RNA sequence: UGGGCACAAGAUACACAGUGUGGUUGCAGCACGCCACAACUGUCACAGCUGCCCGGAGAUCAAUGCUUACCUUCUGAUGACCACACUGUUGUCAAGUCAUCCAGUGUGGACAGAUACGGGGUACACAUGU
Dot-bracket structure: ((((((........((((..((((........))))...))))......)))))).........(..((((((.......(((..(((.............)))..)))........)))))))......
Description: The family of this 130-nucleotide RNA sequence from Portunus trituberculatus is "Small Cajal body specific RNA 8". The family's consensus secondary structure is taken from published work. Rfam's curators write: scaRNAs are a specific class of small nuclear RNAs which localise to the Cajal bodies and guide the modification of RNA polymerase II transcribed spliceosomal RNAs U1, U2, U4, U5 and U12. U92 belong to the H/ACA box class of guide RNAs as it has the predicted hairpin-hinge-hairpin-tail structure, conserved H/ACA-box motifs and is found associated with GAR1. The source organism's lineage runs through Eukaryota, Communostraca, Brachyura, Portuninae and Portunus. It is annotated as a small Cajal body RNA. Gene Ontology terms of the family: nucleolus, Cajal body and RNA processing.